[Rfam]
RNA sequence: GUCCGAGAACCGUGAGGAAACGUCUCCCCUUGCGGAUCCGGCAAAAUAUAACCGAUAAGGAG
Numbered sequence: 001g002u003c004c005g006a007g008a009a010c011c012g013u014g015a016g017g018a019a020a021c022g023u024c025u026c027c028c029c030u031u032g033c034g035g036a037u038c039c040g041g042c043a044a045a046a047u048a049u050a051a052c053c054g055a056u057a058a059g060g061a062g
Stems, first nucleotide, its partner, number of pairs: 003041003007038002010035008